[Rfam]
The family of this 87-nucleotide sequence from Gossypium lobatum is "MIR7486 microRNA precursor family".
Pairs were carried over by alignment from the consensus structure, which was predicted with RNAalifold.
RNA sequence: CACGUCAGUGCACUUUGAUGACGUGGUAACAAAUCGCGUCCACGUAAGCACGAUUUGUCCUCACGUCAGCAAAGCGCGCUGAUGUGG
Numbered sequence: 001c002a003c004g005u006c007a008g009u010g011c012a013c014u015u016u017g018a019u020g021a022c023g024u025g026g027u028a029a030c031a032a033a034u035c036g037c038g039u040c041c042a043c044g045u046a047a048g049c050a051c052g053a054u055u056u057g058u059c060c061u062c063a064c065g066u067c068a069g070c071a072a073a074g075c076g077c078g079c080u081g082a083u084g085u086g087g
Base pairs, nucleotide, nucleotide: 001086002085003084004083005082006081007080008079009078010077011076013074014073015072016071017070019068020067021066023064024063025062026061029058030057031056032055033054034053035052036051038049